[Rfam]
RNA sequence: UUUGCUAGGUUAUCUGCCUAAUUUAUUAGGCAUGGGCUGAUGGUUUUUUAAUCAUCAGCCU
Numbered sequence: 001u002u003u004g005c006u007a008g009g010u011u012a013u014c015u016g017c018c019u020a021a022u023u024u025a026u027u028a029g030g031c032a033u034g035g036g037c038u039g040a041u042g043g044u045u046u047u048u049u050a051a052u053c054a055u056c057a058g059c060c061u
Base pairs, nucleotide, nucleotide: 016031017030018029035060036059037058038057039056040055041054042053043052044051

The family of this 61-nucleotide sequence from Pseudoalteromonas sp. NBT06-2 is "Pseudomonas sRNA P26". The base pairs follow the family's consensus structure, which was predicted with RNAalifold. The match comes from Rfam's covariance-model search (44 bits). For this family Rfam cites "Identification of 17 Pseudomonas aeruginosa sRNAs and prediction of sRNA-encoding genes in 10 diverse pathogens using the bioinformatic tool sRNAPredict2" (Livny et al., Nucleic Acids Res, 2006). From the family's description: This small RNA (sRNA) was computationally identified in the genome of the opportunistic pathogen Pseudomonas aeruginosa and its expression verified by northern blot analysis.